Source information: Shown here is a 110-nucleotide RNA, a member of the family "Actinomyces-1 RNA". Rfam classes the family as a small RNA.

RNA sequence: ACUGCCGCCGGACGGAACCGGUCACGAGGGUUGGGGAGCCCGAUGACUGGCAGGUCUCCGAGUCUGGAACGGGGCUUAGGGAGCCCGGACCGGACGUUCUGGUGAAGGAG
Numbered sequence: 001a002c003u004g005c006c007g008c009c010g011g012a013c014g015g016a017a018c019c020g021g022u023c024a025c026g027a028g029g030g031u032u033g034g035g036g037a038g039c040c041c042g043a044u045g046a047c048u049g050g051c052a053g054g055u056c057u058c059c060g061a062g063u064c065u066g067g068a069a070c071g072g073g074g075c076u077u078a079g080g081g082a083g084c085c086c087g088g089a090c091c092g093g094a095c096g097u098u099c100u101g102g103u104g105a106a107g108g109a110g
Stems, first nucleotide, its partner, number of pairs: 006104007013060004018054002021051004028041005062095006070087004